[Rfam]
Annotation:
Trypanosomatid snoRNA TB11Cs2H1: a 70-nucleotide RNA sequence from Crithidia fasciculata. It is one of the family's seed sequences. The literature on the family includes a 2005 paper in RNA by Liang et al., "A genome-wide analysis of C/D and H/ACA-like small nucleolar RNAs in Trypanosoma brucei reveals a trypanosome-specific pattern of rRNA modification". It is annotated as an H/ACA-box small nucleolar RNA. The organism belongs to Crithidia, within Eukaryota.

RNA sequence: ACAGCCCUUACUGUAGUGCGCGUGCCGCAAACCACCUAGGCACCGUGCAUGAAACUGGAGGGCGAGAGAC
Numbered sequence: 001a002c003a004g005c006c007c008u009u010a011c012u013g014u015a016g017u018g019c020g021c022g023u024g025c026c027g028c029a030a031a032c033c034a035c036c037u038a039g040g041c042a043c044c045g046u047g048c049a050u051g052a053a054a055c056u057g058g059a060g061g062g063c064g065a066g067a068g069a070c
Base pairs, nucleotide, nucleotide: 004063005062006061007060008059009058016050017049018048019047020046021045022044023042024041025040026039